Description: Rfam assigns this 139-nucleotide sequence from Oryza meyeriana to the family "Small nucleolar RNA Z247". Rfam classes the family as a C/D-box small nucleolar RNA. Gene Ontology terms of the family: RNA processing and nucleolus.

RNA sequence: GUGGUCGAUGACGACGAUCUAAUCAGCUAUAUCAUCGCCGGCCUGGAUGAUGACUUUGAAAUAGUCAUCGCGGCACUAGUAGUGCGUCCAGAUCCAAUUACUGUUGGAGAAGCUUUUGCUCAGCUAUUAAGCUUCGAGU
Numbered sequence: 001g002u003g004g005u006c007g008a009u010g011a012c013g014a015c016g017a018u019c020u021a022a023u024c025a026g027c028u029a030u031a032u033c034a035u036c037g038c039c040g041g042c043c044u045g046g047a048u049g050a051u052g053a054c055u056u057u058g059a060a061a062u063a064g065u066c067a068u069c070g071c072g073g074c075a076c077u078a079g080u081a082g083u084g085c086g087u088c089c090a091g092a093u094c095c096a097a098u099u100a101c102u103g104u105u106g107g108a109g110a111a112g113c114u115u116u117u118g119c120u121c122a123g124c125u126a127u128u129a130a131g132c133u134u135c136g137a138g139u
Stems, first nucleotide, its partner, number of pairs: 005137004089107001091105003